[Rfam]
RNA sequence: UAGCCAGCCAGUUAAUCUGUUUCCCUGAAUGCUUCUGCAGACAUUUAGAAAAAGCUUGCAAUGGUGAUGCUACAUUACAAACUUUAAAGACAACUCAAGUCUUUUAAAAUACCUGAAAAUGGCCACAAUA
Numbered sequence: 001u002a003g004c005c006a007g008c009c010a011g012u013u014a015a016u017c018u019g020u021u022u023c024c025c026u027g028a029a030u031g032c033u034u035c036u037g038c039a040g041a042c043a044u045u046u047a048g049a050a051a052a053a054g055c056u057u058g059c060a061a062u063g064g065u066g067a068u069g070c071u072a073c074a075u076u077a078c079a080a081a082c083u084u085u086a087a088a089g090a091c092a093a094c095u096c097a098a099g100u101c102u103u104u105u106a107a108a109a110u111a112c113c114u115g116a117a118a119a120u121g122g123c124c125a126c127a128a129u130a
Stems, first nucleotide, its partner, number of pairs: 003059002006056002016041005069123004081110001083108005089101003
Annotation:
A member of the RNA family "Small nucleolar RNA SNORA33" from Neotoma lepida, 130 nucleotides long. ACA33 is a member of the H/ACA class of snoRNA that guide the sites of modification of uridines to pseudouridines. The base pairs follow the family's consensus structure, which was predicted with PFOLD. By type it is an H/ACA-box small nucleolar RNA.